The record is a 212-nucleotide RNA from Peribacillus muralis, which matches "Bacillus sRNA ncr1575" in Rfam. Rfam classes the family as a small RNA. Lineage of the source: Bacteria > Bacillati > Bacillota > Bacillaceae > Peribacillus. A search with the family's covariance model found it, with a score of 139 bits. On this family, see Irnov et al., Nucleic Acids Res 2010: "Identification of regulatory RNAs in Bacillus subtilis". Pairs were carried over by alignment from the consensus structure, which is taken from published work.
RNA sequence: AACUAUUAAUGGAAAGGGAUGAUGGGUGGACGAUGGAUAACUAAUCUUAUUUUUUAGAUUUUGAAAUUUUAAAUUUCGAAUGAUAAUAAUAUAGGAUUAGUCUGCCCAUUUUUCUAUCAUCUCUUGAGCUAUUUAGAGCUGUAAAGCGAGAUAGCUUAUUUCAGUACGGUAAAAUGAGACUAAUCCUGCCAAAAUAUUGGGAGGAUUUUUUU
Numbered sequence: 001a002a003c004u005a006u007u008a009a010u011g012g013a014a015a016g017g018g019a020u021g022a023u024g025g026g027u028g029g030a031c032g033a034u035g036g037a038u039a040a041c042u043a044a045u046c047u048u049a050u051u052u053u054u055u056a057g058a059u060u061u062u063g064a065a066a067u068u069u070u071a072a073a074u075u076u077c078g079a080a081u082g083a084u085a086a087u088a089a090u091a092u093a094g095g096a097u098u099a100g101u102c103u104g105c106c107c108a109u110u111u112u113u114c115u116a117u118c119a120u121c122u123c124u125u126g127a128g129c130u131a132u133u134u135a136g137a138g139c140u141g142u143a144a145a146g147c148g149a150g151a152u153a154g155c156u157u158a159u160u161u162c163a164g165u166a167c168g169g170u171a172a173a174a175u176g177a178g179a180c181u182a183a184u185c186c187u188g189c190c191a192a193a194a195u196a197u198u199g200g201g202a203g204g205a206u207u208u209u210u211u212u
Base pairs, nucleotide, nucleotide: 016114017113018112019111023108024107025106026105029102030101031100042099043098044097045096046095047094048093049092050091052089053088054086060080061079062078063077064076065075066074067073128155129154130153131152132151133150134149182207183206184205185204186203187202189200190199191198192197